[Rfam]
RNA sequence: CUUGGGUACGGGGAUAUGUAUCCGCGGACUUGGUCAGGCAUGCUGGUGGGGGCCCUGUGUGCUUUGGCUGGGGUGCUGACCAUAGCCAUGCCCGUGCCUGUUAUUGUUAACAAU
Number, nucleotide and partner (000 for none) at each position: 001c000002u113003u000004g111005g000006g000007u000008a107009c106010g105011g104012g000013g102014a101015u100016a099017u000018g097019u096020a095021u094022c000023c000024g000025c000026g000027g000028a000029c000030u000031u000032g000033g000034u000035c000036a000037g077038g076039c075040a074041u000042g000043c000044u000045g000046g000047u000048g000049g063050g062051g000052g000053c000054c000055c000056u000057g000058u000059g000060u000061g000062c050063u049064u000065u000066g000067g000068c000069u000070g000071g000072g000073g000074u040075g039076c038077u037078g000079a000080c000081c000082a000083u000084a000085g000086c000087c000088a000089u000090g000091c000092c000093c000094g021095u020096g019097c018098c000099u016100g015101u014102u013103a000104u011105u010106g009107u008108u000109a000110a000111c004112a000113a002114u000
This 114-nucleotide RNA sequence from Struthio camelus belongs to the Rfam family "Potassium channel RNA editing signal".
Pairs were carried over by alignment from the consensus structure, which is taken from published work.
A reference for the family is Bhalla et al. (2004), "Control of human potassium channel inactivation by editing of a small mRNA hairpin", Nat Struct Mol Biol.
Rfam 15.1 lists 14,095 matches to the family in 1,000 species.
The match comes from Rfam's covariance-model search (92 bits).
This family represents a group of sequences related to the human potassium channel Kv1.1 hairpin element which directs the efficient modification of an adenosine to inosine by an adenosine deaminase acting on RNA (ADAR). The ADAR modification causes an isoleucine/valine recoding event which lies in the ion-conducting pore of the potassium channel. It is thought that this editing event targets the process of fast inactivation and allows a more rapid recovery from inactivation at negative potentials.
Rfam classes the family as a cis-regulatory element.